[Rfam]
RNA: SAH (S-adenosyl-L-homocysteine) riboswitch aptamer
Organism: Giesbergeria anulus
RNA sequence: CUUCCGAGGAGCGUUGCAGCGCGCCCCCAGCACAGGGGUACGUGAGGCUCGGAAUCCACCACCACAACGACGCUCAAAAUGU
Numbered sequence: 001c002u003u004c005c006g007a008g009g010a011g012c013g014u015u016g017c018a019g020c021g022c023g024c025c026c027c028c029a030g031c032a033c034a035g036g037g038g039u040a041c042g043u044g045a046g047g048c049u050c051g052g053a054a055u056c057c058a059c060c061a062c063c064a065c066a067a068c069g070a071c072g073c074u075c076a077a078a079a080u081g082u
Stems, first nucleotide, its partner, number of pairs: 002054006020042002023039005